[Rfam]
Nucleotides: 057
Stems, first nucleotide, its partner, number of pairs: 018037001020035001022033004
Number, partner (000 for none) and nucleotide at each position: 001000u002000g003000c004000a005000a006000g007000u008000a009000u010000u011000u012000u013000a014000c015000g016000a017000u018037u019000c020035a021000g022033a023032a024031g025030u026000a027000a028000c029000u030025a031024u032023u033022u034000a035020u036000u037018g038000u039000a040000c041000a042000g043000a044000u045000u046000g047000u048000g049000u050000a051000u052000a053000a054000a055000g056000a057000u
A member of the RNA family "Plastid-rps18 3UTR RNA" from Gossypium mustelinum, 57 nucleotides long.
The literature on the family includes a 2023 paper in Plant Commun by Richter et al., "Retrograde signaling in plants: A critical review focusing on the GUN pathway and beyond".
The base pairs follow the family's consensus structure, which was predicted with LocARNA.
Rfam's curators write: Plastid rps18 is a non-coding RNA (ncRNA) present in plastids. It was identified as a short stem-loop motif in the 3 prime untranslate region (3UTR) of rps18 gene.